[Rfam]
RNA sequence: ACACAAGGAAGGAGGUGGUCCGAGAAAUUGAUAGCUUCAUGGACAUGUGAGGUGGCUGCGCGCUAGCUGCAUCGGCUCGGAAGAGCUGGCGAUACAGAUGCGCUGGCGAAUUCCCCGCAGUCACCCGGCCCCCGAGCUUCCGGUUUUGUCCGACCUGGAAUACGGCUCGGGGGCCGCUCCAU
Numbered sequence: 001a002c003a004c005a006a007g008g009a010a011g012g013a014g015g016u017g018g019u020c021c022g023a024g025a026a027a028u029u030g031a032u033a034g035c036u037u038c039a040u041g042g043a044c045a046u047g048u049g050a051g052g053u054g055g056c057u058g059c060g061c062g063c064u065a066g067c068u069g070c071a072u073c074g075g076c077u078c079g080g081a082a083g084a085g086c087u088g089g090c091g092a093u094a095c096a097g098a099u100g101c102g103c104u105g106g107c108g109a110a111u112u113c114c115c116c117g118c119a120g121u122c123a124c125c126c127g128g129c130c131c132c133c134g135a136g137c138u139u140c141c142g143g144u145u146u147u148g149u150c151c152g153a154c155c156u157g158g159a160a161u162a163c164g165g166c167u168c169g170g171g172g173g174c175c176g177c178u179c180c181a182u
Stems, first nucleotide, its partner, number of pairs: 015059005061108007069101004126176013140158004145153001
RNA: Actinobacteria sRNA Ms_IGR-5